RNA sequence: CAGCAGUUCUUCACUGGCAAGCUUUAUGUCCUCAUGUAUCAACUAAAGCUGCCAGCUGAAGAACUGU
Numbered sequence: 001c002a003g004c005a006g007u008u009c010u011u012c013a014c015u016g017g018c019a020a021g022c023u024u025u026a027u028g029u030c031c032u033c034a035u036g037u038a039u040c041a042a043c044u045a046a047a048g049c050u051g052c053c054a055g056c057u058g059a060a061g062a063a064c065u066g067u
Stems, first nucleotide, its partner, number of pairs: 007063006016053003020050007
RNA: mir-22 microRNA precursor family
Organism: Paralichthys olivaceus